[Rfam]
RNA: small nucleolar RNA snoR135
RNA sequence: UUAGCAGGAAUUAUAUAUAUUGACAUAGUGCAUUUUGUGCCCUAAUUAGUCGAAAGAUUUUCCUGCAAUAUUCAGGGGAGGAUGGGCAGUUGUGUUUCAUUCUUUUGUUGAUUCUUUUCAACAAUCAUCUUCCCUACAUUU
Numbered sequence: 001u002u003a004g005c006a007g008g009a010a011u012u013a014u015a016u017a018u019a020u021u022g023a024c025a026u027a028g029u030g031c032a033u034u035u036u037g038u039g040c041c042c043u044a045a046u047u048a049g050u051c052g053a054a055a056g057a058u059u060u061u062c063c064u065g066c067a068a069u070a071u072u073c074a075g076g077g078g079a080g081g082a083u084g085g086g087c088a089g090u091u092g093u094g095u096u097u098c099a100u101u102c103u104u105u106u107g108u109u110g111a112u113u114c115u116u117u118u119c120a121a122c123a124a125u126c127a128u129c130u131u132c133c134c135u136a137c138a139u140u141u
Stems, first nucleotide, its partner, number of pairs: 004066007016039004075135011089122004